[Rfam]
RNA sequence: GAGGGGUAACCCAGGCUAGGGAACUCGGCAAAUUAGCCCCGUAACUUCGGGAGAAGGGGUGCCUAUCGUGGUUUAACAAAGCCACGAUAGGUCGCAGUGACCAGAGGGACCUGACUGUUUAAUAAAAACAUAGGUCCCCGCUAGCCCGAAAGGGUGUGUACGGGGGCUAAAUCCUGGCCACUGGUGGUUGGUUAAAUCCGGGUUCAACCGGGCGAAGCCCCACCGAAGGCCGGGGGUAACUCUGACCCUCUUAAGGUAGCCAAAUGCCUUGCCGGGUAAGUUCCGGCGCGCAUGAAUGGAUCAACGCGGUCCCUACUGUCCCAGCCUGGGGCCUCGUGAACGCCCUGAGCCGGUGCACAGUCCGGCAU
Numbered sequence: 001g002a003g004g005g006g007u008a009a010c011c012c013a014g015g016c017u018a019g020g021g022a023a024c025u026c027g028g029c030a031a032a033u034u035a036g037c038c039c040c041g042u043a044a045c046u047u048c049g050g051g052a053g054a055a056g057g058g059g060u061g062c063c064u065a066u067c068g069u070g071g072u073u074u075a076a077c078a079a080a081g082c083c084a085c086g087a088u089a090g091g092u093c094g095c096a097g098u099g100a101c102c103a104g105a106g107g108g109a110c111c112u113g114a115c116u117g118u119u120u121a122a123u124a125a126a127a128a129c130a131u132a133g134g135u136c137c138c139c140g141c142u143a144g145c146c147c148g149a150a151a152g153g154g155u156g157u158g159u160a161c162g163g164g165g166g167c168u169a170a171a172u173c174c175u176g177g178c179c180a181c182u183g184g185u186g187g188u189u190g191g192u193u194a195a196a197u198c199c200g201g202g203u204u205c206a207a208c209c210g211g212g213c214g215a216a217g218c219c220c221c222a223c224c225g226a227a228g229g230c231c232g233g234g235g236g237u238a239a240c241u242c243u244g245a246c247c248c249u250c251u252u253a254a255g256g257u258a259g260c261c262a263a264a265u266g267c268c269u270u271g272c273c274g275g276g277u278a279a280g281u282u283c284c285g286g287c288g289c290g291c292a293u294g295a296a297u298g299g300a301u302c303a304a305c306g307c308g309g310u311c312c313c314u315a316c317u318g319u320c321c322c323a324g325c326c327u328g329g330g331g332c333c334u335c336g337u338g339a340a341c342g343c344c345c346u347g348a349g350c351c352g353g354u355g356c357a358c359a360g361u362c363c364g365g366c367a368u
Stems, first nucleotide, its partner, number of pairs: 001335004010330008019321003036060005045050001061092013093097001105314007112306002116130003133168008141158001144155004171301004176231003181228002183224005190219003197212005232250006251255001271287006349366005